[Rfam]
RNA sequence: UUUCUUUUAAAAGCUCUUUCAAGUUGUAACACUGAAGACACCAGCAUUACAACUUUAAAGAGCUUUUAAAAGUAAA
Numbered sequence: 001u002u003u004c005u006u007u008u009a010a011a012a013g014c015u016c017u018u019u020c021a022a023g024u025u026g027u028a029a030c031a032c033u034g035a036a037g038a039c040a041c042c043a044g045c046a047u048u049a050c051a052a053c054u055u056u057a058a059a060g061a062g063c064u065u066u067u068a069a070a071a072g073u074a075a076a
Base pairs, nucleotide, nucleotide: 001076002075003074005071006070007069008068009067010066012064013063014062015061016060017059018058019057022054023053024052025051026050027049028048029047

The record is a 76-nucleotide RNA sequence from Silurus meridionalis, which matches "mir-130 microRNA precursor family" in Rfam.
Rfam links the family to the GO terms miRNA-mediated post-transcriptional gene silencing and RISC complex.
The family's consensus secondary structure was predicted with PFOLD.
The family has 9 seed sequences and 2,580 matches in Rfam 15.1.